[Rfam]
RNA sequence: CAUGCCGAGGGGCGCUGCAACGGUAAGACCGUCAGGCUCGGCAUGGCGUGGCUUUCCAAAAGCCAACGGCGCCCGUUCAAC
Number, nucleotide and partner (000 for none) at each position: 001c000002a044003u043004g042005c041006c040007g039008a038009g000010g000011g000012g000013c000014g000015c000016u000017g000018c000019a000020a000021c031022g030023g029024u000025a000026a000027g000028a000029c023030c022031g021032u000033c000034a000035g000036g000037c000038u008039c007040g006041g005042c004043a003044u002045g000046g000047c000048g000049u000050g000051g000052c000053u000054u000055u000056c000057c000058a000059a000060a000061a000062g000063c000064c000065a000066a000067c000068g000069g000070c000071g000072c000073c000074c000075g000076u000077u000078c000079a000080a000081c000